The family of this 89-nucleotide RNA sequence from Pelotomaculum schinkii is "c-di-GMP-I riboswitch aptamer". The match comes from Rfam's covariance-model search (81 bits).
RNA sequence: GGACUUGAAGGGCAAACUUGCUGAAAAGCAGGGACGCAAAGCCAAGGAUCUAAGUCGCUGCAGAGCGAUACGAUAGCCUGGUUGCUAAA
Number, nucleotide and partner (000 for none) at each position: 001g000002g000003a000004c000005u000006u000007g000008a000009a000010g000011g000012g037013c036014a000015a000016a000017c032018u031019u030020g029021c028022u027023g000024a000025a000026a000027a022028g021029c020030a019031g018032g017033g000034a000035c000036g013037c012038a000039a000040a083041g082042c081043c080044a000045a079046g078047g077048a074049u073050c072051u000052a000053a000054g000055u068056c067057g066058c065059u000060g000061c000062a000063g000064a000065g058066c057067g056068a055069u000070a000071c000072g050073a049074u048075a000076g000077c047078c046079u045080g043081g042082u041083u040084g000085c000086u000087a000088a000089a000

GEMM was predicted in a large-scale screen for bacterial structured RNA regulatory elements.